A member of the RNA family "mir-676 microRNA precursor family" from Suricata suricatta, 73 nucleotides long. It scores 77 bits against the family's covariance model.

RNA sequence: AAUCCAUGACUCUCCAAUCUCAGGACUUACAGAAUGAAUGGAAUGCCAUCCUAAGGUUGUUGAGUUCUGUGUU
Numbered sequence: 001a002a003u004c005c006a007u008g009a010c011u012c013u014c015c016a017a018u019c020u021c022a023g024g025a026c027u028u029a030c031a032g033a034a035u036g037a038a039u040g041g042a043a044u045g046c047c048a049u050c051c052u053a054a055g056g057u058u059g060u061u062g063a064g065u066u067c068u069g070u071g072u073u
Stems, first nucleotide, its partner, number of pairs: 002072002005069002010064003015059006022052004030045002

Source information
The family has 12 seed sequences and 104 matches in Rfam 15.1. On this family, see Creighton et al., PLoS One 2010: "Discovery of novel microRNAs in female reproductive tract using next generation sequencing". The family's consensus secondary structure was predicted with RNAalifold.